[Rfam]
RNA sequence: AGGCCCGGAGACAGAAGCAGGGUCUGAUUCGCAGCCUCUGAGGCAGCUGUUAAUCAGCCCUUGCCUCUCUCUCUCUCUCUG
Dot-bracket structure: .......((((.(((.((((.(.((((((..((((..........))))..)))))).).)))).))).))))........

Record summary: Rfam assigns this 81-nucleotide RNA sequence from Myotis davidii to the family "mir-574 microRNA precursor family". The match comes from Rfam's covariance-model search (88 bits). Rfam 15.1 lists 4,084 matches to the family in 7 species. The family's consensus secondary structure was predicted with RNAalifold. On this family, see Lui et al., Cancer Res 2007: "Patterns of known and novel small RNAs in human cervical cancer".